[Rfam]
RNA sequence: UGUCGGGAACCUGAGGGGAAGAAGCACUCAGUACGAAAGGAACAGUGCGUCGUGGCCUCUGGUCUACCAGUUGUGUAUACAUCGCUGGGUAGCUAUGCCAUUGUGGAUAAGGGCUGAAAGCAUCUAAGCCCGAAGCCACUCCUGAAAAUAGGUCCCCAAUCCUCAAACUGAUUGGCAACAACCGGCGCGAGGGAGAGGAUCCGGUACACGACCGGGUUGAUAGAAUCGGGGUGUAAGCACCAAGGCAACGAGGUGUUCAGCUUACGAUUACUAACGCUCCAAAAAU
Numbered sequence: 001u002g003u004c005g006g007g008a009a010c011c012u013g014a015g016g017g018g019a020a021g022a023a024g025c026a027c028u029c030a031g032u033a034c035g036a037a038a039g040g041a042a043c044a045g046u047g048c049g050u051c052g053u054g055g056c057c058u059c060u061g062g063u064c065u066a067c068c069a070g071u072u073g074u075g076u077a078u079a080c081a082u083c084g085c086u087g088g089g090u091a092g093c094u095a096u097g098c099c100a101u102u103g104u105g106g107a108u109a110a111g112g113g114c115u116g117a118a119a120g121c122a123u124c125u126a127a128g129c130c131c132g133a134a135g136c137c138a139c140u141c142c143u144g145a146a147a148a149u150a151g152g153u154c155c156c157c158a159a160u161c162c163u164c165a166a167a168c169u170g171a172u173u174g175g176c177a178a179c180a181a182c183c184g185g186c187g188c189g190a191g192g193g194a195g196a197g198g199a200u201c202c203g204g205u206a207c208a209c210g211a212c213c214g215g216g217u218u219g220a221u222a223g224a225a226u227c228g229g230g231g232u233g234u235a236a237g238c239a240c241c242a243a244g245g246c247a248a249c250g251a252g253g254u255g256u257u258c259a260g261c262u263u264a265c266g267a268u269u270a271c272u273a274a275c276g277c278u279c280c281a282a283a284a285a286u
Base pairs, nucleotide, nucleotide: 005157006156007155009153010152011151012150015143016142017141018140021051022050024048025047026046027045028044052101053100054099055098056097060095061094062093067088068087069086070085071084072081073080074079104138105137106136111131112130113129114128115127198279200216201215202214203213204212221273222272223271224269225268226267227266228265229263230262231261237256238255239254240253241252244249

Rfam assigns this 286-nucleotide part of an RNA from a Candidatus Aenigmatarchaeota archaeon to the family "Archaeal large subunit ribosomal RNA". It scores 2272 bits against the family's covariance model. Its family is annotated with ribosome and structural constituent of ribosome in the Gene Ontology. Taxonomically the source falls in Candidatus Aenigmatarchaeota (Archaea, Nanobdellati). On this family, see Yusupov et al., Science 2001: "Crystal structure of the ribosome at 5.5 A resolution".